This 93-nucleotide RNA sequence from Clostridium grantii belongs to the Rfam family "Selenocysteine transfer RNA". The source organism's lineage runs through Bacteria, Bacillota, Clostridia, Eubacteriales and Clostridium grantii. The base pairs follow the family's consensus structure, which is taken from published work.

Nucleotides: 093
Base pairs, nucleotide, nucleotide: 001093002092003091004090005089006088007087008085011026012025013024014023016021029043030042031041032040047067048066049065050064051063070084071083072082073081
Number, partner (000 for none) and nucleotide at each position: 001093g002092g003091g004090a005089g006088u007087a008085g009000a010000u011026a012025g013024g014023u015000u016021c017000u018000g019000g020000u021016g022000u023014g024013c025012c026011u027000g028000c029043c030042a031041g032040u033000c034000u035000u036000c037000a038000a039000a040032a041031c042030u043029g044000u045000g046000u047067u048066g049065g050064g051063g052000u053000g054000u055000u056000a057000a058000u059000a060000g061000c062000a063051u064050c065049c066048u067047g068000g069000g070084u071083g072082g073081g074000u075000u076000c077000g078000a079000u080000u081073c082072c083071c084070a085008c086000a087007u088006a089005u090004u091003c092002c093001c